Record summary:
Rfam assigns this 78-nucleotide sequence from Otolemur garnettii to the family "Small nucleolar RNA SNORD47". Rfam's curators put it in the seed alignment. The family's consensus secondary structure was predicted with ILM.
RNA sequence: GAUCAAUGGUGUAAUGAUUCUGCCCAAUGAGAUAGAAUGAUAUCAUUUGUAAAACUAUUCCAUUUUGAUUCUGAGGUU
Numbered sequence: 001g002a003u004c005a006a007u008g009g010u011g012u013a014a015u016g017a018u019u020c021u022g023c024c025c026a027a028u029g030a031g032a033u034a035g036a037a038u039g040a041u042a043u044c045a046u047u048u049g050u051a052a053a054a055c056u057a058u059u060c061c062a063u064u065u066u067g068a069u070u071c072u073g074a075g076g077u078u
Base pairs, nucleotide, nucleotide: 001078002077003076004075